RNA sequence: AGGCUGGGAGAGAGAAGCAGGGUCUGAUCCAUAGCCUCCAUGGCAGGUGUUGAUCAGCGCUUGCCUCUCUCUUUUUCUCCG
Numbered sequence: 001a002g003g004c005u006g007g008g009a010g011a012g013a014g015a016a017g018c019a020g021g022g023u024c025u026g027a028u029c030c031a032u033a034g035c036c037u038c039c040a041u042g043g044c045a046g047g048u049g050u051u052g053a054u055c056a057g058c059g060c061u062u063g064c065c066u067c068u069c070u071c072u073u074u075u076u077c078u079c080c081g
Stems, first nucleotide, its partner, number of pairs: 008073008017064004024057006032049002035046001